Shown here is a 147-nucleotide RNA from Pseudomonas guineae, a member of the family "proV RNA".
It scores 130 bits against the family's covariance model.
RNA sequence: CGUCGCUCUGACCUCCAGAGGAGGCAGAGACCGGGAGCCCACAGCCCCGGACCGAAGAAUAUAUAAGCGCUGGCUCCUCAUUGAUGGGUGCCAGCCCAACAAGAAAUUUCGGAUGUACGCGCACCUCGGGUCGGGGUGUGUAAAACC
Numbered sequence: 001c002g003u004c005g006c007u008c009u010g011a012c013c014u015c016c017a018g019a020g021g022a023g024g025c026a027g028a029g030a031c032c033g034g035g036a037g038c039c040c041a042c043a044g045c046c047c048c049g050g051a052c053c054g055a056a057g058a059a060u061a062u063a064u065a066a067g068c069g070c071u072g073g074c075u076c077c078u079c080a081u082u083g084a085u086g087g088g089u090g091c092c093a094g095c096c097c098a099a100c101a102a103g104a105a106a107u108u109u110c111g112g113a114u115g116u117a118c119g120c121g122c123a124c125c126u127c128g129g130g131u132c133g134g135g136g137u138g139u140g141u142a143a144a145a146c147c
Base pairs, nucleotide, nucleotide: 006029007028008027009026010025012024013023014022015021016020031050032049033048034047035046037045038044120140121139122138123137124136125135126134127133